Nucleotides: 094
Base pairs, nucleotide, nucleotide: 001094002093003092004091005090006089
Number, partner (000 for none) and nucleotide at each position: 001094u002093c003092u004091g005090g006089c007000u008000g009000u010000a011000u012000g013000a014000a015000g016000a017000g018000c019000c020000u021000u022000a023000a024000a025000a026000c027000a028000c029000u030000u031000g032000c033000c034000c035000u036000c037000a038000c039000u040000g041000a042000g043000a044000a045000c046000a047000g048000c049000a050000u051000u052000c053000g054000c055000u056000g057000a058000u059000g060000a061000g062000a063000g064000u065000g066000g067000u068000u069000u070000g071000a072000u073000a074000a075000g076000c077000u078000c079000a080000g081000u082000g083000a084000g085000c086000c087000g088000a089006g090005c091004c092003a093002g094001a